[Rfam]
Shown here is a 79-nucleotide RNA sequence from Acipenser ruthenus, a member of the family "mir-144 microRNA precursor family".
It scores 85 bits against the family's covariance model.

RNA sequence: GUUCCGGAUAGGAUAUCAUCUUAUACUGUAAGUUUGCUAUAUCGACACUACAGUAUAGAUGAUGUACUACCCAGGGCUU
Numbered sequence: 001g002u003u004c005c006g007g008a009u010a011g012g013a014u015a016u017c018a019u020c021u022u023a024u025a026c027u028g029u030a031a032g033u034u035u036g037c038u039a040u041a042u043c044g045a046c047a048c049u050a051c052a053g054u055a056u057a058g059a060u061g062a063u064g065u066a067c068u069a070c071c072c073a074g075g076g077c078u079u
Base pairs, nucleotide, nucleotide: 007071010068011067013065014064015063016062017061018060019059020058022057023056024055025054026053027052028051029050030049032046033045034044
Taxonomically the source falls in Acipenser (Eukaryota, Chordata, Vertebrata, Acipenserini). Its family is annotated with miRNA-mediated post-transcriptional gene silencing and RISC complex in the Gene Ontology.